The record is a 132-nucleotide RNA sequence from Gopherus evgoodei, which matches "Small nucleolar RNA SNORA22" in Rfam. ACA22 is a member of the H/ACA class of snoRNA that guide the sites of modification of uridines to pseudouridines. A search with the family's covariance model found it, with a score of 130 bits.
RNA sequence: UUGCACAGUGAACACCCAAGUGUGCUUUGUAGUUCCCUUGGCUAGAACUCUGUGCUAGAGUAAUCUGUUCUUUUCCUCUGCAUUAGGAGGAGUGCCUUUCCUUUUACAUGUAUUCAGAAGGACAGUACAUUU
Numbered sequence: 001u002u003g004c005a006c007a008g009u010g011a012a013c014a015c016c017c018a019a020g021u022g023u024g025c026u027u028u029g030u031a032g033u034u035c036c037c038u039u040g041g042c043u044a045g046a047a048c049u050c051u052g053u054g055c056u057a058g059a060g061u062a063a064u065c066u067g068u069u070c071u072u073u074u075c076c077u078c079u080g081c082a083u084u085a086g087g088a089g090g091a092g093u094g095c096c097u098u099u100c101c102u103u104u105u106a107c108a109u110g111u112a113u114u115c116a117g118a119a120g121g122a123c124a125g126u127a128c129a130u131u132u
Stems, first nucleotide, its partner, number of pairs: 003055006010049001016041005022035001024033003057071006077118004081110003085105007